Rfam assigns this 112-nucleotide RNA from Marinithermofilum abyssi to the family "TPP riboswitch aptamer (THI element)". A search with the family's covariance model found it, with a score of 57 bits. Taxonomically the source falls in Marinithermofilum (Bacteria, Bacillati, Caryophanales, Thermoactinomycetaceae).

[Rfam]
RNA sequence: UGCAUAUUCAACGGGAGCUUGGAGUAGCCAGGCUGAGAGGGCGGGAUGUCUACGCCGACCGUUCAACCUGAUCUGGGUAAUGCCAGCGUAGGGAAUCACAGGGGAUUCCUGU
Numbered sequence: 001u002g003c004a005u006a007u008u009c010a011a012c013g014g015g016a017g018c019u020u021g022g023a024g025u026a027g028c029c030a031g032g033c034u035g036a037g038a039g040g041g042c043g044g045g046a047u048g049u050c051u052a053c054g055c056c057g058a059c060c061g062u063u064c065a066a067c068c069u070g071a072u073c074u075g076g077g078u079a080a081u082g083c084c085a086g087c088g089u090a091g092g093g094a095a096u097c098a099c100a101g102g103g104g105a106u107u108c109c110u111g112u
Base pairs, nucleotide, nucleotide: 008098010096011062012061013060014059017033018032019031020030021029040056041055042054043053067092068091069090070089073086074085075084076083